[Rfam]
RNA sequence: GCCAGGCGCGCGGGAGAGUCCGGCAGCCCCCUUCGAAGGGUGACGGACGCCGAAGGAGCAACCGCCCCGGAAACUCUCAGGCCAAAAGGACCGCGCACUUGGU
Numbered sequence: 001g002c003c004a005g006g007c008g009c010g011c012g013g014g015a016g017a018g019u020c021c022g023g024c025a026g027c028c029c030c031c032u033u034c035g036a037a038g039g040g041u042g043a044c045g046g047a048c049g050c051c052g053a054a055g056g057a058g059c060a061a062c063c064g065c066c067c068c069g070g071a072a073a074c075u076c077u078c079a080g081g082c083c084a085a086a087a088g089g090a091c092c093g094c095g096c097a098c099u100u101g102g103u
Stems, first nucleotide, its partner, number of pairs: 006098001008096006019047004049082003052078002056076003062070002
Glycine riboswitch aptamer: a 103-nucleotide RNA sequence from Aurantiacibacter spongiae. Rfam links the family to the GO term glycine biosynthetic process. It scores 58 bits against the family's covariance model.